[Rfam]
RNA sequence: AGUUAAAUACGUAUUUUUGCAGAUAUAACGUUCGUAUAAUGGUCGAACAGUUUCUACCGCCUUCCAAAGUUGGCGACUAUCCGCAAAUGCUAUUAGUGA
Number, nucleotide and partner (000 for none) at each position: 001a000002g000003u000004u000005a000006a000007a000008u000009a000010c000011g000012u000013a000014u000015u000016u000017u000018u085019g084020c083021a000022g081023a080024u079025a078026u000027a000028a000029c000030g048031u047032u046033c045034g044035u000036a000037u000038a000039a000040u000041g000042g000043u000044c034045g033046a032047a031048c030049a000050g000051u000052u000053u000054c000055u000056a000057c000058c075059g074060c073061c072062u000063u000064c069065c000066a000067a000068a000069g064070u000071u000072g061073g060074c059075g058076a000077c000078u025079a024080u023081c022082c000083g020084c019085a018086a000087a000088u000089g000090c000091u000092a000093u000094u000095a000096g000097u000098g000099a000
The family of this 99-nucleotide sequence from Weissella oryzae is "Purine riboswitch aptamer". From the family's description: Riboswitches are metabolite binding domains within certain messenger RNAs that serve as precision sensors for their corresponding targets. The organism belongs to Weissella oryzae, within Bacteria.